[Rfam]
RNA sequence: AUUGACCCGCGAACAAAAGGAACUUUCCGUUCAAAAGCAAAAAUUAUGGCGGGUGGGAAAUUCGGUGGUACUCUCCAUUCAUUCAAGAUUUGUGCUCCUGAGAGCAAAUUCCUGAGCGUGCAAACGCAUGGGCGGUGUUAAAAGAAAUCUUCAGAGCCCGAAGGCGCCCGACUACCUUCGGUAGUUUGGCUUUUCUUUGGGUUCUAUGGGAAUGACGCCGUGAAUGGUUGGCUGUUGUUUAGUGUCAAAGCGAACAAGGGCUAUUUAGUGCAAUAUGCGAACUUGAUGGUUGUUCAUAACUGUCAAGAACCCGAUACCGAUCAUUGACGAU
Numbered sequence: 001a002u003u004g005a006c007c008c009g010c011g012a013a014c015a016a017a018a019g020g021a022a023c024u025u026u027c028c029g030u031u032c033a034a035a036a037g038c039a040a041a042a043a044u045u046a047u048g049g050c051g052g053g054u055g056g057g058a059a060a061u062u063c064g065g066u067g068g069u070a071c072u073c074u075c076c077a078u079u080c081a082u083u084c085a086a087g088a089u090u091u092g093u094g095c096u097c098c099u100g101a102g103a104g105c106a107a108a109u110u111c112c113u114g115a116g117c118g119u120g121c122a123a124a125c126g127c128a129u130g131g132g133c134g135g136u137g138u139u140a141a142a143a144g145a146a147a148u149c150u151u152c153a154g155a156g157c158c159c160g161a162a163g164g165c166g167c168c169c170g171a172c173u174a175c176c177u178u179c180g181g182u183a184g185u186u187u188g189g190c191u192u193u194u195c196u197u198u199g200g201g202u203u204c205u206a207u208g209g210g211a212a213u214g215a216c217g218c219c220g221u222g223a224a225u226g227g228u229u230g231g232c233u234g235u236u237g238u239u240u241a242g243u244g245u246c247a248a249a250g251c252g253a254a255c256a257a258g259g260g261c262u263a264u265u266u267a268g269u270g271c272a273a274u275a276u277g278c279g280a281a282c283u284u285g286a287u288g289g290u291u292g293u294u295c296a297u298a299a300c301u302g303u304c305a306a307g308a309a310c311c312c313g314a315u316a317c318c319g320a321u322c323a324u325u326g327a328c329g330a331u
Stems, first nucleotide, its partner, number of pairs: 003275001005054005020032004063319005077225004093106005117130005133220007153205006282307010

A member of the RNA family "Nuclear RNase P" from Lodderomyces parapsilosis, 331 nucleotides long.
The family's RNA type in Rfam is ribozyme.
A search with the family's covariance model found it, with a score of 61 bits.
The family has 116 seed sequences and 3,848 matches in Rfam 15.1.